[Rfam]
RNA sequence: GCUAUUAACGGCGAUGGAACUCGCCAAAACCGCCUUUUGAAAGGCUGAUAGUUCCUACUUUUCC
Numbered sequence: 001g002c003u004a005u006u007a008a009c010g011g012c013g014a015u016g017g018a019a020c021u022c023g024c025c026a027a028a029a030c031c032g033c034c035u036u037u038u039g040a041a042a043g044g045c046u047g048a049u050a051g052u053u054c055c056u057a058c059u060u061u062u063c064c
Stems, first nucleotide, its partner, number of pairs: 010025004016055006032045004

A member of the RNA family "Fluoride riboswitch aptamer (crcB RNA motif)" from Trichormus variabilis, 64 nucleotides long. Lineage of the source: Bacteria > Bacillati > Nostocaceae > Trichormus > Trichormus variabilis. Pairs were carried over by alignment from the consensus structure, which is taken from published work.